Nucleotides: 077
Base pairs, nucleotide, nucleotide: 002076003075004074007071008070009069011067012066013065016062017061018060019059020058024054025053026052027051028050029049030048031047
Number, partner (000 for none) and nucleotide at each position: 001000a002076u003075g004074c005000u006000u007071a008070c009069u010000g011067c012066a013065g014000u015000a016062c017061c018060a019059u020058u021000g022000a023000a024054a025053g026052a027051g028050c029049u030048a031047u032000c033000a034000u035000c036000a037000c038000u039000u040000c041000a042000c043000a044000c045000u046000u047031a048030u049029a050028g051027c052026u053025c054024u055000g056000a057000a058020a059019a060018u061017g062016g063000c064000g065013c066012u067011g068000g069009a070008g071007u072000c073000u074004g075003c076002a077000g